[Rfam]
RNA sequence: GCCGGGUGCGGUGGCGCAUACCUGUAAUCCAAGCUACCGGGAGGCUGAGGUUGGAGGAUCGUUUGAGCUCAGGAGCUCUGAGCUGCAGCAAGCUAUGUCGAUCGGGUGUCCACACUAAGUUCGGCAUCGAUAUGGUGAUCCUGGGGGAGCCCGGGACCACCAGGUCACCUAAGAAGGGGUGCACCGGCCCAGGUCGGAGACGGAGCAGGUCAAAUCCCCCGUGUCGCUCAGUAGUGGGAUCGCACCUGUGAAUAGAUGCUGUAGCGCAGCCUGAGCAAUACAGCGAGACCCAAUCUUUA
Numbered sequence: 001g002c003c004g005g006g007u008g009c010g011g012u013g014g015c016g017c018a019u020a021c022c023u024g025u026a027a028u029c030c031a032a033g034c035u036a037c038c039g040g041g042a043g044g045c046u047g048a049g050g051u052u053g054g055a056g057g058a059u060c061g062u063u064u065g066a067g068c069u070c071a072g073g074a075g076c077u078c079u080g081a082g083c084u085g086c087a088g089c090a091a092g093c094u095a096u097g098u099c100g101a102u103c104g105g106g107u108g109u110c111c112a113c114a115c116u117a118a119g120u121u122c123g124g125c126a127u128c129g130a131u132a133u134g135g136u137g138a139u140c141c142u143g144g145g146g147g148a149g150c151c152c153g154g155g156a157c158c159a160c161c162a163g164g165u166c167a168c169c170u171a172a173g174a175a176g177g178g179g180u181g182c183a184c185c186g187g188c189c190c191a192g193g194u195c196g197g198a199g200a201c202g203g204a205g206c207a208g209g210u211c212a213a214a215u216c217c218c219c220c221g222u223g224u225c226g227c228u229c230a231g232u233a234g235u236g237g238g239a240u241c242g243c244a245c246c247u248g249u250g251a252a253u254a255g256a257u258g259c260u261g262u263a264g265c266g267c268a269g270c271c272u273g274a275g276c277a278a279u280a281c282a283g284c285g286a287g288a289c290c291c292a293a294u295c296u297u298u299a
Stems, first nucleotide, its partner, number of pairs: 001045003004023005010017001028042003047297008059286005067276007078269003082265009093255004098250001103248007110238002113236005119229001122226006129166003133162005139156007169173001176219004186211004194203003
A member of the RNA family "Metazoan signal recognition particle RNA" from Maylandia zebra, 299 nucleotides long.
By type it is a non-coding RNA gene.
Rfam's curators write: The signal recognition particle (SRP) is a universally conserved ribonucleoprotein. It is involved in the co-translational targeting of proteins to membranes.
Rfam links the family to the GO terms SRP-dependent cotranslational protein targeting to membrane, signal sequence recognition and signal recognition particle, endoplasmic reticulum targeting.